[Rfam]
Nucleotides: 375
Base pairs, nucleotide, nucleotide: 001371002370003369004368005367006366007365008364009363010362012318013317014316015315016314017313018312020047021046022045023044024043025042052358053357054356056355057354058353059352060351061222062221063220064219068254069253070252071251073218074217075216076215077214078092079091080090081089082088093107094105095104096103097102108213109212113211114210115207116206130152131151132148133147134146135145136144137143138142160178161177163175164174165173179202180200181199182198183197184196185194186193187192226275227274228273229272235266236265237264238263239262240261246258247257248256249255282301283300284299285298286297287296288295289294
Number, partner (000 for none) and nucleotide at each position: 001371u002370g003369a004368g005367a006366c007365c008364u009363c010362u011000u012318g013317a014316u015315g016314g017313c018312c019000g020047c021046g022045g023044c024043c025042g026000u027000g028000a029000u030000c031000u032000u033000c034000a035000u036000u037000g038000g039000g040000a041000u042025c043024g044023g045022c046021u047020g048000a049000g050000g051000a052358a053357c054356u055000u056355c057354c058353g059352g060351g061222c062221u063220c064219c065000a066000u067000a068254g069253a070252g071251c072000a073218c074217g075216a076215u077214g078092g079091c080090g081089g082088a083000u084000a085000a086000c087000g088082u089081c090080c091079g092078c093107c094105c095104a096103g097102g098000g099000u100000g101000a102097c103096c104095u105094g106000a107093g108213a109212g110000a111000u112000a113211g114210c115207g116206c117000a118000a119000c120000a121000g122000a123000g124000a125000a126000c127000a128000g129000a130152c131151c132148g133147c134146c135145c136144g137143u138142c139000c140000u141000c142138g143137a144136c145135g146134g147133g148132u149000a150000a151131g152130g153000g154000u155000g156000a157000a158000a159000c160178g161177g162000c163175g164174g165173u166000g167000u168000a169000a170000g171000a172000g173165a174164c175163c176000a177161c178160c179202g180200g181199g182198c183197c184196u185194c186193u187192g188000g189000u190000a191000a192187c193186a194185g195000u196184a197183g198182g199181u200180c201000g202179c203000a204000u205000g206116g207115c208000a209000a210114g211113c212109c213108u214077c215076a216075u217074c218073g219064g220063g221062a222061g223000c224000a225000a226275g227274g228273c229272c230000a231000a232000g233000c234000a235266g236265a237264u238263g239262g240261c241000g242000g243000u244000a245000a246258g247257g248256g249255c250000u251071g252070c253069u254068c255249g256248c257247c258246c259000g260000u261240g262239u263238c264237a265236u266235c267000g268000g269000g270000u271000a272229g273228g274227c275226u276000g277000c278000u279000a280000g281000a282301g283300c284299c285298u286297g287296g288295c289294g290000g291000u292000a293000a294289c295288g296287u297286c298285a299284g300283g301282u302000c303000g304000a305000g306000a307000u308000g309000g310000a311000u312018g313017g314016c315015c316014a317013u318012c319000c320000g321000u322000g323000c324000c325000g326000u327000g328000c329000g330000u331000u332000c333000g334000c335000g336000c337000a338000c339000g340000g341000c342000a343000c344000g345000a346000c347000a348000g349000a350000a351060c352059c353058c354057g355056g356054g357053g358052u359000a360000u361000a362010a363009g364008a365007g366006g367005u368004c369003u370002c371001a372000u373000u374000u375000u

Description
This 375-nucleotide sequence from Bifidobacterium longum belongs to the Rfam family "Bacterial RNase P class A". The family's consensus secondary structure is taken from published work. It is annotated as a ribozyme. For this family Rfam cites "Ribonuclease P: unity and diversity in a tRNA processing ribozyme" (Frank and Pace, Annu Rev Biochem, 1998).